[Rfam]
Small nucleolar RNA SNORA47: a 129-nucleotide RNA sequence from Lanius ludovicianus. Rfam 15.1 lists 733 matches to the family in 635 species. It is annotated as an H/ACA-box small nucleolar RNA. Rfam links the family to the GO terms RNA processing and nucleolus.
RNA sequence: UGGAGGACUGAGAAGGUAAGACAGUUAAACUUUAUGCUGUAUCUUACUGGUUAUAGCCUCCAAAAUUAUAAUAGUGCAAUGGCAACUCAUGUUCCCCUCCCGACAUGAGGGAAAGCAGUACUGCCUUUG
Numbered sequence: 001u002g003g004a005g006g007a008c009u010g011a012g013a014a015g016g017u018a019a020g021a022c023a024g025u026u027a028a029a030c031u032u033u034a035u036g037c038u039g040u041a042u043c044u045u046a047c048u049g050g051u052u053a054u055a056g057c058c059u060c061c062a063a064a065a066u067u068a069u070a071a072u073a074g075u076g077c078a079a080u081g082g083c084a085a086c087u088c089a090u091g092u093u094c095c096c097c098u099c100c101c102g103a104c105a106u107g108a109g110g111g112a113a114a115g116c117a118g119u120a121c122u123g124c125c126u127u128u129g
Stems, first nucleotide, its partner, number of pairs: 002061005015048004019042001021040005081125003085119003093113001095111003100107001